[Rfam]
RNA sequence: GAUAAAAGAUGAGUUGAAAAAAAGACAAGCAUAUGUCUGAUCUUAAAGAAGAGAAAUUUUUCAUGUCUGAUAUC
Numbered sequence: 001g002a003u004a005a006a007a008g009a010u011g012a013g014u015u016g017a018a019a020a021a022a023a024g025a026c027a028a029g030c031a032u033a034u035g036u037c038u039g040a041u042c043u044u045a046a047a048g049a050a051g052a053g054a055a056a057u058u059u060u061u062c063a064u065g066u067c068u069g070a071u072a073u074c
Stems, first nucleotide, its partner, number of pairs: 001074004
RNA: Small nucleolar RNA SNORD27